[Rfam]
RNA sequence: UCUAUGAAAAGGCAAACUCAGGGCAACCUGGGGACGCAAAGCCACGGGUCCGCAGCAGCGGACAGCCGGGACAUCAAG
Numbered sequence: 001u002c003u004a005u006g007a008a009a010a011g012g013c014a015a016a017c018u019c020a021g022g023g024c025a026a027c028c029u030g031g032g033g034a035c036g037c038a039a040a041g042c043c044a045c046g047g048g049u050c051c052g053c054a055g056c057a058g059c060g061g062a063c064a065g066c067c068g069g070g071a072c073a074u075c076a077a078g
Stems, first nucleotide, its partner, number of pairs: 012037002017032006042070002045068003048063006
Rfam assigns this 78-nucleotide sequence from Pelobacter propionicus to the family "c-di-GMP-I riboswitch aptamer". The match comes from Rfam's covariance-model search (60 bits).